[Rfam]
RNA sequence: CCUUAUGGAUGUGCAAAGAAAGUGGUUUCUUGAGGUGGAAACUGCUUUCUUUGCUCAUCUAUAAGAA
Numbered sequence: 001c002c003u004u005a006u007g008g009a010u011g012u013g014c015a016a017a018g019a020a021a022g023u024g025g026u027u028u029c030u031u032g033a034g035g036u037g038g039a040a041a042c043u044g045c046u047u048u049c050u051u052u053g054c055u056c057a058u059c060u061a062u063a064a065g066a067a
Stems, first nucleotide, its partner, number of pairs: 002065004007060005013054016